[Rfam]
RNA: ffh sRNA
Organism: Ancylobacter defluvii
RNA sequence: GAGGCCGGAGGUUCCCGCCCGACAGCGCGAUGCGCCCUCGGGCGCGUUCGGC
Numbered sequence: 001g002a003g004g005c006c007g008g009a010g011g012u013u014c015c016c017g018c019c020c021g022a023c024a025g026c027g028c029g030a031u032g033c034g035c036c037c038u039c040g041g042g043c044g045c046g047u048u049c050g051g052c
Stems, first nucleotide, its partner, number of pairs: 016044007025035004